Shown here is a 299-nucleotide RNA from Xenopus tropicalis, a member of the family "Metazoan signal recognition particle RNA". The family's RNA type in Rfam is non-coding RNA gene. Its Rfam clan is "SRP clan". From the family's description: The signal recognition particle (SRP) is a universally conserved ribonucleoprotein. Rfam 15.1 lists 383,523 matches to the family in 1,221 species.
RNA sequence: GCCGGGCACAGUGGCGCGUGCCUGUAAUCCUGCUGUUUGGGAGGCUAAGGCUGAGGGAUUGCUUGAGUCUGGGAGUUCUAGUCUGCCCUGAGCCAUGUCGAUCGGGUGUCCGCACUAAGUUCAGUAUCAAUAUGGUGUUCCUGAGGGAGCUUGGGAUCACCAGGUUGUCUAAAGAGGGGUGAACCGAUCCAGGUCGGUAACGGAGCAGGUCAAAGCCCCCAUGCUGAUCAGUAGUGGGAUAGCGCCUGUGAAUGGUCAGUGCAGAGUAGCCUGGGUGAUACAGUGAGACCCAGCCUUUU
Numbered sequence: 001g002c003c004g005g006g007c008a009c010a011g012u013g014g015c016g017c018g019u020g021c022c023u024g025u026a027a028u029c030c031u032g033c034u035g036u037u038u039g040g041g042a043g044g045c046u047a048a049g050g051c052u053g054a055g056g057g058a059u060u061g062c063u064u065g066a067g068u069c070u071g072g073g074a075g076u077u078c079u080a081g082u083c084u085g086c087c088c089u090g091a092g093c094c095a096u097g098u099c100g101a102u103c104g105g106g107u108g109u110c111c112g113c114a115c116u117a118a119g120u121u122c123a124g125u126a127u128c129a130a131u132a133u134g135g136u137g138u139u140c141c142u143g144a145g146g147g148a149g150c151u152u153g154g155g156a157u158c159a160c161c162a163g164g165u166u167g168u169c170u171a172a173a174g175a176g177g178g179g180u181g182a183a184c185c186g187a188u189c190c191a192g193g194u195c196g197g198u199a200a201c202g203g204a205g206c207a208g209g210u211c212a213a214a215g216c217c218c219c220c221a222u223g224c225u226g227a228u229c230a231g232u233a234g235u236g237g238g239a240u241a242g243c244g245c246c247u248g249u250g251a252a253u254g255g256u257c258a259g260u261g262c263a264g265a266g267u268a269g270c271c272u273g274g275g276u277g278a279u280a281c282a283g284u285g286a287g288a289c290c291c292a293g294c295c296u297u298u299u
Base pairs, nucleotide, nucleotide: 001045002044003043004023005022006021007020008019009018028042029041030040047297048296049295050294051293052292053291055289059286060285061284062283063282067276068275069274070273071272072271073270078269079268080267082265083264084263085262086261088259089258090257092256093255094254095253096252098250103248104247105246106245107244108243109242110238111237113236114235115234116233117232119229121227122226123225124224125223126222127221128167129166130165131164133162134161135160136159137158139156140155141154142153143152144151145150168174176219177218178217179216180215186211187210188209189208194203195202196201